[Rfam]
Cyanobacterial ribosomal protein S1 leader: an 85-nucleotide RNA sequence from Synechococcus sp. KORDI-100.
The literature on the family includes a 2007 paper in Nucleic Acids Res by Weinberg et al., "Identification of 22 candidate structured RNAs in bacteria using the CMfinder comparative genomics pipeline".
The match comes from Rfam's covariance-model search (54 bits).
RNA sequence: GUCUGUAAGAUCGUGAAUUCUCCGUGGAUCGUCGGCGGGCGAACCAUGGACAUUCUCGUACUGCCCUCCCGAGGCAGACCGCCAU
Numbered sequence: 001g002u003c004u005g006u007a008a009g010a011u012c013g014u015g016a017a018u019u020c021u022c023c024g025u026g027g028a029u030c031g032u033c034g035g036c037g038g039g040c041g042a043a044c045c046a047u048g049g050a051c052a053u054u055c056u057c058g059u060a061c062u063g064c065c066c067u068c069c070c071g072a073g074g075c076a077g078a079c080c081g082c083c084a085u
Stems, first nucleotide, its partner, number of pairs: 023048004029042004034083005061077005

The family's consensus secondary structure is taken from published work. cyano-S1 is a ncRNA recognized in the 5-prime region of genes encoding 30S ribosomal protein S1, it has been proposed as an cis regulation element.